[Rfam]
RNA sequence: CGCAACCGCUAGGGGCGCAAUUUGCUGAGAGGACUUACAUCCGACCCUUUGAACCUGAAUCUGGUUAAAACCAGCGUAGGAAAGCGAGCAGAUUUCUGC
Dot-bracket structure: ......((((((((..(((...)))......((......))...)))).....((((...((((......))))..))))..)))).............
Numbered sequence: 001c002g003c004a005a006c007c008g009c010u011a012g013g014g015g016c017g018c019a020a021u022u023u024g025c026u027g028a029g030a031g032g033a034c035u036u037a038c039a040u041c042c043g044a045c046c047c048u049u050u051g052a053a054c055c056u057g058a059a060u061c062u063g064g065u066u067a068a069a070a071c072c073a074g075c076g077u078a079g080g081a082a083a084g085c086g087a088g089c090a091g092a093u094u095u096c097u098g099c
Stems, first nucleotide, its partner, number of pairs: 007086004011048004017025003032041002054080004061074004

The family of this 99-nucleotide sequence from Phascolarctobacterium succinatutens is "TPP riboswitch aptamer (THI element)".
The source organism's lineage runs through Bacteria, Bacillati, Negativicutes, Acidaminococcales and Phascolarctobacterium succinatutens.